The family of this 53-nucleotide RNA sequence from Tranquillimonas rosea is "ffh sRNA". A reference for the family is Meyer et al. (2009), "Identification of candidate structured RNAs in the marine organism 'Candidatus Pelagibacter ubique'", BMC Genomics. NCBI's taxonomy places the organism under Bacteria, Pseudomonadota, Rhodobacterales, Roseobacteraceae, Tranquillimonas. Rfam classes the family as a small RNA. A search with the family's covariance model found it, with a score of 64 bits. Pairs were carried over by alignment from the consensus structure, which is taken from published work.
RNA sequence: AUAGGCCGGGAUCGCCCCCCGCCAGCGAGGAUUCGCCCGCGGGGGCAUUUUUG
Numbered sequence: 001a002u003a004g005g006c007c008g009g010g011a012u013c014g015c016c017c018c019c020c021g022c023c024a025g026c027g028a029g030g031a032u033u034c035g036c037c038c039g040c041g042g043g044g045g046c047a048u049u050u051u052u053g
Stems, first nucleotide, its partner, number of pairs: 016045007025036004